Rfam assigns this 105-nucleotide RNA from Candidatus Jettenia caeni to the family "c-di-GMP-I-GGC riboswitch aptamer". The family is grouped with related families in Rfam's "c-di-GMP_I riboswitch clan". On this family, see Weinberg et al., Proc Natl Acad Sci U S A 2017: "Bioinformatic analysis of riboswitch structures uncovers variant classes with altered ligand specificity".
[Rfam]
RNA sequence: CACGAUAAAGGUAAACCCUGAGUGAUCAGGGGGCGCAAAGUGUAGGAUCUCAGCUCAAGUCAUCUCCAGAUAAGAAAUAUCAGAAAGAUAGCCUUACUGCCGAAG
Numbered sequence: 001c002a003c004g005a006u007a008a009a010g011g012u013a014a015a016c017c018c019u020g021a022g023u024g025a026u027c028a029g030g031g032g033g034c035g036c037a038a039a040g041u042g043u044a045g046g047a048u049c050u051c052a053g054c055u056c057a058a059g060u061c062a063u064c065u066c067c068a069g070a071u072a073a074g075a076a077a078u079a080u081c082a083g084a085a086a087g088a089u090a091g092c093c094u095u096a097c098u099g100c101c102g103a104a105g
Stems, first nucleotide, its partner, number of pairs: 001105001003102002011036002016031006034091001039098004044094003047089003